[Rfam]
The record is a 120-nucleotide RNA from Streptomyces flaveus, which matches "Streptomyces-metH RNA" in Rfam.
RNA sequence: CCCGUCCGUCCCGUGGACUCCCCUGACCGUCCGAACCGCUCCCGGCUACCCUGGCUUGGUGCGUCCUCCGCCGGGAGCCGCAUAGCCGACAGCCGUCGCACAACAGGGAGCCCUUUCAUG
Numbered sequence: 001c002c003c004g005u006c007c008g009u010c011c012c013g014u015g016g017a018c019u020c021c022c023c024u025g026a027c028c029g030u031c032c033g034a035a036c037c038g039c040u041c042c043c044g045g046c047u048a049c050c051c052u053g054g055c056u057u058g059g060u061g062c063g064u065c066c067u068c069c070g071c072c073g074g075g076a077g078c079c080g081c082a083u084a085g086c087c088g089a090c091a092g093c094c095g096u097c098g099c100a101c102a103a104c105a106g107g108g109a110g111c112c113c114u115u116u117c118a119u120g
Stems, first nucleotide, its partner, number of pairs: 060082004066077004085099002088097003